[Rfam]
RNA sequence: UGUCUCCUCCACCUCCCUUGGUGGAUUUAGCCCCCGCGCCUGCAAAGGCCGGGGGCUUUUUUAA
Dot-bracket structure: .......((((((......))))))...((((((((.............)))))))).......